[Rfam]
RNA sequence: GUCUGCGCAAGCAGACUUUCGAUCUCACGAUCAUGUGGCAUAUGAGAAAUUCGGAGAAAUCGCUUCACACCCAGCUCGCCCGUCGCGCAGCGUCUCGCACGUUUGCUCGUCGGUAUCGAUUGCUCUGCCGGUGACGGCCUGGCGCGAUGUCGCGUCUGUAAUUGGCAUCAGAAAAGCAGGGCCUGGGCGGGGAUGUCUGCUUGCGGGCGUCUCCUGUCUCCAGGUUCCUCUGGGAGGGCCAUUACGAAGCUUGUGAACAGCACUUUAGUGCAAUACGCAGCGUGUCGUCUGCCUCGCUUCACGGCGAGGUGGGCGUCACAAUUCGAUUCCGAUUACUCUGUUGGGGAC
Numbered sequence: 001g002u003c004u005g006c007g008c009a010a011g012c013a014g015a016c017u018u019u020c021g022a023u024c025u026c027a028c029g030a031u032c033a034u035g036u037g038g039c040a041u042a043u044g045a046g047a048a049a050u051u052c053g054g055a056g057a058a059a060u061c062g063c064u065u066c067a068c069a070c071c072c073a074g075c076u077c078g079c080c081c082g083u084c085g086c087g088c089a090g091c092g093u094c095u096c097g098c099a100c101g102u103u104u105g106c107u108c109g110u111c112g113g114u115a116u117c118g119a120u121u122g123c124u125c126u127g128c129c130g131g132u133g134a135c136g137g138c139c140u141g142g143c144g145c146g147a148u149g150u151c152g153c154g155u156c157u158g159u160a161a162u163u164g165g166c167a168u169c170a171g172a173a174a175a176g177c178a179g180g181g182c183c184u185g186g187g188c189g190g191g192g193a194u195g196u197c198u199g200c201u202u203g204c205g206g207g208c209g210u211c212u213c214c215u216g217u218c219u220c221c222a223g224g225u226u227c228c229u230c231u232g233g234g235a236g237g238g239c240c241a242u243u244a245c246g247a248a249g250c251u252u253g254u255g256a257a258c259a260g261c262a263c264u265u266u267a268g269u270g271c272a273a274u275a276c277g278c279a280g281c282g283u284g285u286c287g288u289c290u291g292c293c294u295c296g297c298u299u300c301a302c303g304g305c306g307a308g309g310u311g312g313g314c315g316u317c318a319c320a321a322u323u324c325g326a327u328u329c330c331g332a333u334u335a336c337u338c339u340g341u342u343g344g345g346g347a348c
Stems, first nucleotide, its partner, number of pairs: 001348004007341003016277001018275001021032004052331005062250004127138004141156005158245004164240003179229003282319003286315012
Notes
Nuclear RNase P: a 348-nucleotide sequence from Schizothecium vesticola. Rfam classes the family as a ribozyme. It scores 45 bits against the family's covariance model. Rfam links the family to the GO terms ribonuclease P activity, ribonuclease P complex and tRNA processing.